[Rfam]
RNA sequence: GUUCCUGCCCCAGUGGGUCAUCGGCCCCGGCCCGCUGACAGGCAACCCUUCUCCGCGACGGGGUGCCCUGGGUGAUGACCGGGUCCUGCCGGGGUGGCGGGACAAGCGUGGUCU
Numbered sequence: 001g002u003u004c005c006u007g008c009c010c011c012a013g014u015g016g017g018u019c020a021u022c023g024g025c026c027c028c029g030g031c032c033c034g035c036u037g038a039c040a041g042g043c044a045a046c047c048c049u050u051c052u053c054c055g056c057g058a059c060g061g062g063g064u065g066c067c068c069u070g071g072g073u074g075a076u077g078a079c080c081g082g083g084u085c086c087u088g089c090c091g092g093g094g095u096g097g098c099g100g101g102a103c104a105a106g107c108g109u110g111g112u113c114u
Stems, first nucleotide, its partner, number of pairs: 001080001003078002013039002016036003023032002041067003046063003050058002083103009
RNA: SAM (S-adenosyl methionine) riboswitch aptamer
Organism: Streptomyces sp. So13.3